Notes:
A member of the RNA family "Nitrogen stress-induced RNA 1" from Leptolyngbya iicbica, 52 nucleotides long. By type it is a small RNA. It scores 55 bits against the family's covariance model. On this family, see Ionescu et al., J Mol Biol 2010: "Heterocyst-specific transcription of NsiR1, a non-coding RNA encoded in a tandem array of direct repeats in cyanobacteria". The family has 17 seed sequences and 962 matches in Rfam 15.1. The organism belongs to Leptolyngbya iicbica, within Bacteria.
[Rfam]
RNA sequence: CGGUAGAUGCACCCUGAUAGAAAUCCCCGGUCAAAUGACCGGGGAUUUUUUU
Numbered sequence: 001c002g003g004u005a006g007a008u009g010c011a012c013c014c015u016g017a018u019a020g021a022a023a024u025c026c027c028c029g030g031u032c033a034a035a036u037g038a039c040c041g042g043g044g045a046u047u048u049u050u051u052u
Stems, first nucleotide, its partner, number of pairs: 002013003024045009